[Rfam]
Description: Shown here is an 83-nucleotide sequence from Tolypothrix tenuis, a member of the family "Photosynthesis regulatory RNA1". A search with the family's covariance model found it, with a score of 52 bits. The source organism's lineage runs through Bacteria, Bacillati, Cyanobacteriota, Nostocales and Tolypothrix tenuis. The base pairs follow the family's consensus structure, which was predicted with CMfinder. From the family's description: Formerly known as Syr1 discovered in Synechocystis sp PCC 6803, is a regulatory factor controlling photosynthetic functions. PsrR1 interacts with the ribosome binding regions of several photosynthesis-related mRNAs. In particular, psaL mRNA is processed by RNase E only in the presence of PsrR1. It is annotated as a small RNA. On this family, see Georg et al., Plant Cell 2014: "The small regulatory RNA SyR1/PsrR1 controls photosynthetic functions in cyanobacteria".

RNA sequence: AAUAUUUUUUGACCUCGGUAUCAUCAUCUCUCAUCGUUAUUUGGUUUUCUCCCCAUCACCUCAGCUUGGUAGCUGAGGUUUUU
Numbered sequence: 001a002a003u004a005u006u007u008u009u010u011g012a013c014c015u016c017g018g019u020a021u022c023a024u025c026a027u028c029u030c031u032c033a034u035c036g037u038u039a040u041u042u043g044g045u046u047u048u049c050u051c052c053c054c055a056u057c058a059c060c061u062c063a064g065c066u067u068g069g070u071a072g073c074u075g076a077g078g079u080u081u082u083u
Stems, first nucleotide, its partner, number of pairs: 058079008